[Rfam]
RNA sequence: GGGGACCUUCGGGGCCCUUUAACCACAGGUCCCAUCUGGGACCGACAGAGCAAACGGAAGAAGCUA
Numbered sequence: 001g002g003g004g005a006c007c008u009u010c011g012g013g014g015c016c017c018u019u020u021a022a023c024c025a026c027a028g029g030u031c032c033c034a035u036c037u038g039g040g041a042c043c044g045a046c047a048g049a050g051c052a053a054a055c056g057g058a059a060g061a062a063g064c065u066a
Stems, first nucleotide, its partner, number of pairs: 001018004006014003028043006
Dot-bracket structure: ((((.(((...))))))).........((((((....)))))).......................
The family of this 66-nucleotide sequence from Loktanella sp. S4079 is "L2-Alphaproteobacteria ribosomal protein leader". The family's consensus secondary structure is taken from published work. Taxonomically the source falls in Loktanella (Bacteria, Pseudomonadota, Alphaproteobacteria, Rhodobacterales). By type it is a cis-regulatory leader.